[Rfam]
RNA sequence: CAGGGUACCCAUUGACCCUCUUCAGUUCAACCAAAUGAACUAAAAUUCAAAAUGACACAUCUUUUUAGAAAACUAGUUCAUUUGUUUGAACUAAGGAGGGUCAAAGGGUACCCUG
Numbered sequence: 001c002a003g004g005g006u007a008c009c010c011a012u013u014g015a016c017c018c019u020c021u022u023c024a025g026u027u028c029a030a031c032c033a034a035a036u037g038a039a040c041u042a043a044a045a046u047u048c049a050a051a052a053u054g055a056c057a058c059a060u061c062u063u064u065u066u067a068g069a070a071a072a073c074u075a076g077u078u079c080a081u082u083u084g085u086u087u088g089a090a091c092u093a094a095g096g097a098g099g100g101u102c103a104a105a106g107g108g109u110a111c112c113c114u115g
Stems, first nucleotide, its partner, number of pairs: 002114009012104011024092007032084011
Shown here is a 115-nucleotide RNA sequence from Brachypodium distachyon, a member of the family "MIR5070 microRNA precursor family". The match comes from Rfam's covariance-model search (114 bits). Taxonomically the source falls in Brachypodium (Eukaryota, Viridiplantae, Streptophytina, Liliopsida).